A member of the RNA family "Bacterial small subunit ribosomal RNA" from a Spirochaetota bacterium, 543 nucleotides of a longer RNA. Rfam 15.1 lists 42,628 matches to the family in 10,626 species. The family is grouped with related families in Rfam's "SSU clan". NCBI's taxonomy places the organism under Bacteria, Pseudomonadati, Spirochaetota. Its family is annotated with ribosome and structural constituent of ribosome in the Gene Ontology.
[Rfam]
RNA sequence: AUGAUGAAGAGUUUGAUUCUGGCUCAGAACGAACGUUAGUGAGAUGUUUUAAGCAUGCAAGUCGAGCGGCAGCACUACGGGUGGCGAGCGGCAAACGGGUGAGUAAUAGUUAGUUCACCUACCUCUCAGACUGGGAUAGCCGCUGUAAUGGCGAUUAAUACCGGAUACGAGGAAACUUGAAAGGUGCGUUAGCAUCGCUGAGAAAUGGGACUAACUCCUAUUAGCUUGUUGGUGAGGUAAUGGCUCACCAAGGCCAUGAUAGGUAGCCGGCCUGAGAGGGUGACCGGCCACAUUGGGACUGAGAUACGGCCCAGACUCCUACGGGAGGCAGCAGCUGAGAAUAUUCCGCAAUGGAGGCAACUCUGACGGAGCAAUCUCACAUGGAUGACGAAGGCCUUCGGGUUGUAAAGUCCUUUCAGCAAAGAAGAAUAAGUCUAUCAGGAAAUGGAUAGAUGAUGACGUUAUUUGCAGAAGCAGCCCCGGCUAACUACGUGCCAGCAGCCGCGGUAAUACGUAGGGGGCGAACGUUGUUCGGAUUUACUG
Numbered sequence: 001a002u003g004a005u006g007a008a009g010a011g012u013u014u015g016a017u018u019c020u021g022g023c024u025c026a027g028a029a030c031g032a033a034c035g036u037u038a039g040u041g042a043g044a045u046g047u048u049u050u051a052a053g054c055a056u057g058c059a060a061g062u063c064g065a066g067c068g069g070c071a072g073c074a075c076u077a078c079g080g081g082u083g084g085c086g087a088g089c090g091g092c093a094a095a096c097g098g099g100u101g102a103g104u105a106a107u108a109g110u111u112a113g114u115u116c117a118c119c120u121a122c123c124u125c126u127c128a129g130a131c132u133g134g135g136a137u138a139g140c141c142g143c144u145g146u147a148a149u150g151g152c153g154a155u156u157a158a159u160a161c162c163g164g165a166u167a168c169g170a171g172g173a174a175a176c177u178u179g180a181a182a183g184g185u186g187c188g189u190u191a192g193c194a195u196c197g198c199u200g201a202g203a204a205a206u207g208g209g210a211c212u213a214a215c216u217c218c219u220a221u222u223a224g225c226u227u228g229u230u231g232g233u234g235a236g237g238u239a240a241u242g243g244c245u246c247a248c249c250a251a252g253g254c255c256a257u258g259a260u261a262g263g264u265a266g267c268c269g270g271c272c273u274g275a276g277a278g279g280g281u282g283a284c285c286g287g288c289c290a291c292a293u294u295g296g297g298a299c300u301g302a303g304a305u306a307c308g309g310c311c312c313a314g315a316c317u318c319c320u321a322c323g324g325g326a327g328g329c330a331g332c333a334g335c336u337g338a339g340a341a342u343a344u345u346c347c348g349c350a351a352u353g354g355a356g357g358c359a360a361c362u363c364u365g366a367c368g369g370a371g372c373a374a375u376c377u378c379a380c381a382u383g384g385a386u387g388a389c390g391a392a393g394g395c396c397u398u399c400g401g402g403u404u405g406u407a408a409a410g411u412c413c414u415u416u417c418a419g420c421a422a423a424g425a426a427g428a429a430u431a432a433g434u435c436u437a438u439c440a441g442g443a444a445a446u447g448g449a450u451a452g453a454u455g456a457u458g459a460c461g462u463u464a465u466u467u468g469c470a471g472a473a474g475c476a477g478c479c480c481c482g483g484c485u486a487a488c489u490a491c492g493u494g495c496c497a498g499c500a501g502c503c504g505c506g507g508u509a510a511u512a513c514g515u516a517g518g519g520g521g522c523g524a525a526c527g528u529u530g531u532u533c534g535g536a537u538u539u540a541c542u543g
Stems, first nucleotide, its partner, number of pairs: 009025005027533004032529006039380006045373002047338001052336003056333003061092003066089002069085002072082002099291003108216008118208002124203006131164004139155001141153005170177002183196003217263003224254003229251008266288004270281004293314005316327004344370001346369003352365005383413004393404004417474001419469005427460001433454006477522005488517005498505002